[Rfam]
RNA sequence: GCCCUUGGCUUAAUCUCCGAAAGAGCCUAUAUUGAAGGGGUCGGGCAACCGACUAUGACGAUAAACGCUUAGUGGAAUAAGCGUUGCGGACCCGGGGGCGGUACCCGGCGCCUCCACCAUAAGCCCAUCUGGCGGUGAAUUGGGUGGGCUUGUGAUGGGGGCGAAAUAGGAUCGACGCGCGUAGUAAAGACUUUUGCUUUCGUCCGGCAUGGUACCCACCGUUAUCGGGCCACUUUGAGAAAUGCCAACGAUAAUGAGGCAUUUGCUGUUGCCGCUUAAUAGGCUGUAACAACGGGGUUCGGGAGGCACCUGGCAACAGAAGCCUCCCACU
Numbered sequence: 001g002c003c004c005u006u007g008g009c010u011u012a013a014u015c016u017c018c019g020a021a022a023g024a025g026c027c028u029a030u031a032u033u034g035a036a037g038g039g040g041u042c043g044g045g046c047a048a049c050c051g052a053c054u055a056u057g058a059c060g061a062u063a064a065a066c067g068c069u070u071a072g073u074g075g076a077a078u079a080a081g082c083g084u085u086g087c088g089g090a091c092c093c094g095g096g097g098g099c100g101g102u103a104c105c106c107g108g109c110g111c112c113u114c115c116a117c118c119a120u121a122a123g124c125c126c127a128u129c130u131g132g133c134g135g136u137g138a139a140u141u142g143g144g145u146g147g148g149c150u151u152g153u154g155a156u157g158g159g160g161g162c163g164a165a166a167u168a169g170g171a172u173c174g175a176c177g178c179g180c181g182u183a184g185u186a187a188a189g190a191c192u193u194u195u196g197c198u199u200u201c202g203u204c205c206g207g208c209a210u211g212g213u214a215c216c217c218a219c220c221g222u223u224a225u226c227g228g229g230c231c232a233c234u235u236u237g238a239g240a241a242a243u244g245c246c247a248a249c250g251a252u253a254a255u256g257a258g259g260c261a262u263u264u265g266c267u268g269u270u271g272c273c274g275c276u277u278a279a280u281a282g283g284c285u286g287u288a289a290c291a292a293c294g295g296g297g298u299u300c301g302g303g304a305g306g307c308a309c310c311u312g313g314c315a316a317c318a319g320a321a322g323c324c325u326c327c328c329a330c331u
Stems, first nucleotide, its partner, number of pairs: 040053005057204005067197002071192003082181003086178003092108005109163007205221003210232003215228002295311004302327006
Alphaproteobacteria transfer-messenger RNA: a 331-nucleotide sequence from Magnetospira sp. QH-2. Its family is annotated with RNA catabolic process in the Gene Ontology. The base pairs follow the family's consensus structure, which is taken from published work. Taxonomically the source falls in Magnetospira (Bacteria, Alphaproteobacteria, Rhodospirillales, Thalassospiraceae). The family is grouped with related families in Rfam's "tRNA clan". It is annotated as a non-coding RNA gene.